[Rfam]
RNA sequence: UGUGCCUCUUGAAUAACCAAUUGCAGUGAUUUGUGUAUUUGCAUUUGGUUCAGACGGGGGCACAUAACAAAUGUGAUCUUUUGAGGAAAGGGAUCUUGUUCUUUGUUCAUCCCUCCUUAGAUUGAUUCCGACAGUAACAUCU
Numbered sequence: 001u002g003u004g005c006c007u008c009u010u011g012a013a014u015a016a017c018c019a020a021u022u023g024c025a026g027u028g029a030u031u032u033g034u035g036u037a038u039u040u041g042c043a044u045u046u047g048g049u050u051c052a053g054a055c056g057g058g059g060g061c062a063c064a065u066a067a068c069a070a071a072u073g074u075g076a077u078c079u080u081u082u083g084a085g086g087a088a089a090g091g092g093a094u095c096u097u098g099u100u101c102u103u104u105g106u107u108c109a110u111c112c113c114u115c116c117u118u119a120g121a122u123u124g125a126u127u128c129c130g131a132c133a134g135u136a137a138c139a140u141c142u
Base pairs, nucleotide, nucleotide: 003062004061005060006059007058009057015050016049017048018047019046020045022043024041025040026039073135074131077121078120079119083115084114086113089103090102091101092100093099094098
Notes
Rfam assigns this 142-nucleotide RNA from Panicum miliaceum to the family "Small nucleolar RNA snoR138". The literature on the family includes a 2009 paper in Nucleic Acids Res by Chen and Wu, "Mining small RNA sequencing data: a new approach to identify small nucleolar RNAs in Arabidopsis". Gene Ontology terms of the family: nucleolus and RNA processing. Rfam classes the family as an H/ACA-box small nucleolar RNA. The organism belongs to Panicum sect. Panicum, within Eukaryota.